Annotation
The record is a 133-nucleotide RNA from Electrophorus electricus, which matches "Small nucleolar RNA SNORA47" in Rfam. Pairs were carried over by alignment from the consensus structure, which was predicted with WAR. It scores 45 bits against the family's covariance model. The literature on the family includes a 2001 paper in EMBO J by Huttenhofer et al., "RNomics: an experimental approach that identifies 201 candidates for novel, small, non-messenger RNAs in mouse".
RNA sequence: UGGAGAUUUGAGAAAGUUUUGCAGUUGAUUUAGUACUGCCAGAACUGGUUAGAACCUCCAAGACCAAAUCUCAAGCAGUGCAUUCAUGUCUGACUCUUUCAUUCAGAUUAUGCGCUGUGCUUGAGUACAGGAU
Numbered sequence: 001u002g003g004a005g006a007u008u009u010g011a012g013a014a015a016g017u018u019u020u021g022c023a024g025u026u027g028a029u030u031u032a033g034u035a036c037u038g039c040c041a042g043a044a045c046u047g048g049u050u051a052g053a054a055c056c057u058c059c060a061a062g063a064c065c066a067a068a069u070c071u072c073a074a075g076c077a078g079u080g081c082a083u084u085c086a087u088g089u090c091u092g093a094c095u096c097u098u099u100c101a102u103u104c105a106g107a108u109u110a111u112g113c114g115c116u117g118u119g120c121u122u123g124a125g126u127a128c129a130g131g132a133u
Base pairs, nucleotide, nucleotide: 002059003058004057005056015046016045017044018043019041021039022038023037024036025035070125071124072123077121078120080118081117082116